[Rfam]
Shown here is a 96-nucleotide sequence from Magnetospirillum gryphiswaldense, a member of the family "Glycine riboswitch aptamer".
NCBI's taxonomy places the organism under Bacteria, Pseudomonadota, Alphaproteobacteria, Rhodospirillales, Magnetospirillum gryphiswaldense MSR-1.

RNA sequence: UGAUCCCCGCUGGGAGAGAGCGGGCCGGAUACCGGUCCGCCGCCGAAGGAGCAACCGCCCCUGGAAACUCUCAGGCCAAAGGACCAGCGGGGGGAU
Numbered sequence: 001u002g003a004u005c006c007c008c009g010c011u012g013g014g015a016g017a018g019a020g021c022g023g024g025c026c027g028g029a030u031a032c033c034g035g036u037c038c039g040c041c042g043c044c045g046a047a048g049g050a051g052c053a054a055c056c057g058c059c060c061c062u063g064g065a066a067a068c069u070c071u072c073a074g075g076c077c078a079a080a081g082g083a084c085c086a087g088c089g090g091g092g093g094g095a096u
Base pairs, nucleotide, nucleotide: 006091007090008089009088010087011086012085013084020040021039022038023037024036025035026034027033042076043075044074045072046071049070050069051068055063